[Rfam]
RNA sequence: CGACCAGAGGGAGGCAUGGGAGCGGGGACCCGGCAGCGCGACGACCACAGAACGGUCGCCGUCCGUCGCGCUGAGCCAAGGGCGAGACCGGUCCUCGGGUGG
Numbered sequence: 001c002g003a004c005c006a007g008a009g010g011g012a013g014g015c016a017u018g019g020g021a022g023c024g025g026g027g028a029c030c031c032g033g034c035a036g037c038g039c040g041a042c043g044a045c046c047a048c049a050g051a052a053c054g055g056u057c058g059c060c061g062u063c064c065g066u067c068g069c070g071c072u073g074a075g076c077c078a079a080g081g082g083c084g085a086g087a088c089c090g091g092u093c094c095u096c097g098g099g100u101g102g
Stems, first nucleotide, its partner, number of pairs: 001102001003100003007096005013077003022071003026067002054089002056085005

Shown here is a 102-nucleotide RNA, a member of the family "c-di-GMP-II-GAG riboswitch aptamer".
Its Rfam clan is "c-di-GMP_II riboswitch clan".
The literature on the family includes a 2017 paper in Proc Natl Acad Sci U S A by Weinberg et al., "Bioinformatic analysis of riboswitch structures uncovers variant classes with altered ligand specificity".
Gene Ontology terms of the family: regulation of gene expression and cyclic-di-GMP binding.